Shown here is a 390-nucleotide part of an RNA from Gossypium armourianum, a member of the family "Eukaryotic large subunit ribosomal RNA".
A reference for the family is Yusupov et al. (2001), "Crystal structure of the ribosome at 5.5 A resolution", Science.
The match comes from Rfam's covariance-model search (2348 bits).
Pairs were carried over by alignment from the consensus structure, which is taken from published work.
NCBI's taxonomy places the organism under Eukaryota, Spermatophyta, Gunneridae, Malvaceae, Gossypium.
RNA sequence: GCAUCACAAUAGUAAUUCAACCUAGUACGAGAAGAAUCAUUAAUUCGCACAAUUGGUCAUUGCGCUUGGUUGAAAAGCCAGUGGCGCAAAGCUACCGUUCGCUGGAUUAUGACUAAACUUCUCUAAGUUAGAAUCCUGGCUAGAAGCGAUACACAUGCCCGUCAUCCGAUUGUAGACCCGCAGUAGGGCCUCUGGCCCCCAAGGGCACGUGUCGUAGGUGCAGCAAUCGCGGCAGACAAGUCACAGGCGCCAUCCUUGGAGCGUAAUUUCCAUCGAGGAACGAGUAGAAUCCUUUGCAGAUGACUUAAAUACUCGAUGGGUAUUGUAAGUGGUAGAGUGGCCUUGCUGCCACGAUCCACUGAGAUUCAGCCCUUUGUCGCUUUGAUUCGU
Numbered sequence: 001g002c003a004u005c006a007c008a009a010u011a012g013u014a015a016u017u018c019a020a021c022c023u024a025g026u027a028c029g030a031g032a033a034g035a036a037u038c039a040u041u042a043a044u045u046c047g048c049a050c051a052a053u054u055g056g057u058c059a060u061u062g063c064g065c066u067u068g069g070u071u072g073a074a075a076a077g078c079c080a081g082u083g084g085c086g087c088a089a090a091g092c093u094a095c096c097g098u099u100c101g102c103u104g105g106a107u108u109a110u111g112a113c114u115a116a117a118c119u120u121c122u123c124u125a126a127g128u129u130a131g132a133a134u135c136c137u138g139g140c141u142a143g144a145a146g147c148g149a150u151a152c153a154c155a156u157g158c159c160c161g162u163c164a165u166c167c168g169a170u171u172g173u174a175g176a177c178c179c180g181c182a183g184u185a186g187g188g189c190c191u192c193u194g195g196c197c198c199c200c201a202a203g204g205g206c207a208c209g210u211g212u213c214g215u216a217g218g219u220g221c222a223g224c225a226a227u228c229g230c231g232g233c234a235g236a237c238a239a240g241u242c243a244c245a246g247g248c249g250c251c252a253u254c255c256u257u258g259g260a261g262c263g264u265a266a267u268u269u270c271c272a273u274c275g276a277g278g279a280a281c282g283a284g285u286a287g288a289a290u291c292c293u294u295u296g297c298a299g300a301u302g303a304c305u306u307a308a309a310u311a312c313u314c315g316a317u318g319g320g321u322a323u324u325g326u327a328a329g330u331g332g333u334a335g336a337g338u339g340g341c342c343u344u345g346c347u348g349c350c351a352c353g354a355u356c357c358a359c360u361g362a363g364a365u366u367c368a369g370c371c372c373u374u375u376g377u378c379g380c381u382u383u384g385a386u387u388c389g390u
Stems, first nucleotide, its partner, number of pairs: 001152001003150003007146001010142004015045001017043001019041002046101002049098002054094003061088005066081006104136002110130005160282003165277001287388005293307001296304001314379003318372003322365002329359004334355001337352005